The record is a 157-nucleotide sequence from Embleya scabrispora, which matches "c-di-AMP riboswitch aptamer (ydaO/yuaA leader)" in Rfam. A search with the family's covariance model found it, with a score of 62 bits. Lineage of the source: Bacteria > Actinomycetota > Actinomycetes > Streptomycetaceae > Embleya. The pairing is the family consensus, mapped onto this sequence.
[Rfam]
RNA sequence: AUGUCUACAGCGAACAAUCCGACGGGAGCGGGGGAACCAGGUGAAUCGCCGUGGCCGGGAUCGUUCCGGUGACGGCUAGGGGUGAAGUCGCGUGAAGCGACCGGGCUGCUCCAGUCCGAAUCCGACAGCUCACCUCGUAGGCGACAGGAGAGGACCC
Numbered sequence: 001a002u003g004u005c006u007a008c009a010g011c012g013a014a015c016a017a018u019c020c021g022a023c024g025g026g027a028g029c030g031g032g033g034g035a036a037c038c039a040g041g042u043g044a045a046u047c048g049c050c051g052u053g054g055c056c057g058g059g060a061u062c063g064u065u066c067c068g069g070u071g072a073c074g075g076c077u078a079g080g081g082g083u084g085a086a087g088u089c090g091c092g093u094g095a096a097g098c099g100a101c102c103g104g105g106c107u108g109c110u111c112c113a114g115u116c117c118g119a120a121u122c123c124g125a126c127a128g129c130u131c132a133c134c135u136c137g138u139a140g141g142c143g144a145c146a147g148g149a150g151a152g153g154a155c156c157c
Base pairs, nucleotide, nucleotide: 004026005025028138029137030136031135032134033133038079080123081122082121088100089099090098091097103117104116105115106114
Dot-bracket structure: ...((...................)).((((((....(........................................)(((.....((((.....))))..((((.......))))...))).........))))))...................